[Rfam]
RNA sequence: GCCAUACUGCUCCUGUAAAUCGCUCUGGAUAAGAGCGUCUACUAAAUGACUUAAA
Dot-bracket structure: .............((((...((((((.....))))))..))).)...........
Numbered sequence: 001g002c003c004a005u006a007c008u009g010c011u012c013c014u015g016u017a018a019a020u021c022g023c024u025c026u027g028g029a030u031a032a033g034a035g036c037g038u039c040u041a042c043u044a045a046a047u048g049a050c051u052u053a054a055a
Stems, first nucleotide, its partner, number of pairs: 014044001015042003021037006